[Rfam]
A member of the RNA family "Lysine riboswitch aptamer" from Colwellia chukchiensis, 228 nucleotides long. The literature on the family includes a 2003 paper in Cell by Mandal et al., "Riboswitches Control Fundamental Biochemical Pathways in Bacillus subtilis and Other Bacteria". The organism belongs to Colwellia, within Bacteria. Pairs were carried over by alignment from the consensus structure, which is taken from published work. A search with the family's covariance model found it, with a score of 80 bits. Gene Ontology term of the family: lysine biosynthetic process.
RNA sequence: AGGGUCAGAAGAGGUGCGUUAACCAGGUAGUUAUUGUGAAGAGAUCAAACUCUAGUGAGCAAUAAUGAGGGGGUUUAUCGCCGAGGGCAGGGUAUUUUUGAUGAUGCAAUGUCCGGUUGUUUAAGCUUGAUGAUCAAUACAUGGUAAUCAAGUUUUAUACCAAUACAGUAUUGGUAUUAGGUUGAAUCCUAGCAACUGUCACCGAUUUGGUGGAGAGCUUCUGGCCUU
Numbered sequence: 001a002g003g004g005u006c007a008g009a010a011g012a013g014g015u016g017c018g019u020u021a022a023c024c025a026g027g028u029a030g031u032u033a034u035u036g037u038g039a040a041g042a043g044a045u046c047a048a049a050c051u052c053u054a055g056u057g058a059g060c061a062a063u064a065a066u067g068a069g070g071g072g073g074u075u076u077a078u079c080g081c082c083g084a085g086g087g088c089a090g091g092g093u094a095u096u097u098u099u100g101a102u103g104a105u106g107c108a109a110u111g112u113c114c115g116g117u118u119g120u121u122u123a124a125g126c127u128u129g130a131u132g133a134u135c136a137a138u139a140c141a142u143g144g145u146a147a148u149c150a151a152g153u154u155u156u157a158u159a160c161c162a163a164u165a166c167a168g169u170a171u172u173g174g175u176a177u178u179a180g181g182u183u184g185a186a187u188c189c190u191a192g193c194a195a196c197u198g199u200c201a202c203c204g205a206u207u208u209g210g211u212g213g214a215g216a217g218c219u220u221c222u223g224g225c226c227u228u
Stems, first nucleotide, its partner, number of pairs: 006223006016081003020077003024073001030066008085114005092107005115197007199213006